RNA sequence: UUGGUUGUGGCUGCAACGGAGUGCUCUCGCGCACGGGCUGAAUGGACAU
Numbered sequence: 001u002u003g004g005u006u007g008u009g010g011c012u013g014c015a016a017c018g019g020a021g022u023g024c025u026c027u028c029g030c031g032c033a034c035g036g037g038c039u040g041a042a043u044g045g046a047c048a049u
Base pairs, nucleotide, nucleotide: 008040009039010038011037012036021034022033023032024031
Annotation
Rfam assigns this 49-nucleotide sequence to the family "ssnA RNA". Rfam's curators put it in the seed alignment.